The record is a 154-nucleotide sequence from Leptolyngbya sp. 'hensonii', which matches "Ribosomal protein L10 leader" in Rfam. Rfam's curators write: This family is a putative r-protein leader autoregulatory structure found in B. subtilis and other low-GC Gram-positive bacteria. It is located in the 5' untranslated regions of mRNAs encoding ribosomal proteins L10 and L12 (rplJ-rplL). A Rho-independent transcription terminator structure that is probably involved in regulation is included at the 3' end. A search with the family's covariance model found it, with a score of 56 bits. Rfam classes the family as a cis-regulatory leader. The literature on the family includes a 2008 paper in Biochemistry by Iben and Draper, "Specific interactions of the L10(L12)4 ribosomal protein complex with mRNA, rRNA, and L11". The source organism's lineage runs through Bacteria, Bacillati, Cyanobacteriota, Leptolyngbyales and Leptolyngbya.
RNA sequence: AGAAUCAAAUAUUUGGAACCAGAGACAGCAGGUGAAUAUCGCUUAAUUUCCUGCCGAGGUUUCAUCAGCCUUUCAACUUUCUUGCUUUAUGCUGCAAGCUUGAAGUGUCUGAUGGAAUUCCCCGGCACAGUUGCCGGGGUUUUUUAUUGACUGA
Numbered sequence: 001a002g003a004a005u006c007a008a009a010u011a012u013u014u015g016g017a018a019c020c021a022g023a024g025a026c027a028g029c030a031g032g033u034g035a036a037u038a039u040c041g042c043u044u045a046a047u048u049u050c051c052u053g054c055c056g057a058g059g060u061u062u063c064a065u066c067a068g069c070c071u072u073u074c075a076a077c078u079u080u081c082u083u084g085c086u087u088u089a090u091g092c093u094g095c096a097a098g099c100u101u102g103a104a105g106u107g108u109c110u111g112a113u114g115g116a117a118u119u120c121c122c123c124g125g126c127a128c129a130g131u132u133g134c135c136g137g138g139g140u141u142u143u144u145u146a147u148u149g150a151c152u153g154a
Base pairs, nucleotide, nucleotide: 028054029053030052031051032050034042120139121138122137123136124135125134126133127132